[Rfam]
RNA sequence: AGCACUGUGUGGUAUCUGCAGCCAGUUUGUCAGCUGGUUUGUUCAAACUUCAGUGCUAGAAAAAGUCAACAUCUGGCAUCGUUGGUCUCCAUACCACUUGUGUUUGGAGUCCUGGUAUGUGUGUUGAAACAUGC
Numbered sequence: 001a002g003c004a005c006u007g008u009g010u011g012g013u014a015u016c017u018g019c020a021g022c023c024a025g026u027u028u029g030u031c032a033g034c035u036g037g038u039u040u041g042u043u044c045a046a047a048c049u050u051c052a053g054u055g056c057u058a059g060a061a062a063a064a065g066u067c068a069a070c071a072u073c074u075g076g077c078a079u080c081g082u083u084g085g086u087c088u089c090c091a092u093a094c095c096a097c098u099u100g101u102g103u104u105u106g107g108a109g110u111c112c113u114g115g116u117a118u119g120u121g122u123g124u125u126g127a128a129a130c131a132u133g134c
Stems, first nucleotide, its partner, number of pairs: 002056006014050001017047001018042004023037001024035003060122001062120001064118001066115003075104005
RNA: Small nucleolar RNA SNORA8